[Rfam]
Rfam assigns this 62-nucleotide RNA sequence from Cebus imitator to the family "Selenocysteine insertion sequence 1".
By type it is a cis-regulatory element.
The family has 61 seed sequences and 3,793 matches in Rfam 15.1.
RNA sequence: UUUUCAUCUAUGAGGGUGUUUCCUCUAAACCUACAAGGCGGAACACCUGAUCUUCCAGAAAA
Dot-bracket structure: (((((.........((((((.((......(((...))).))))))))..........)))))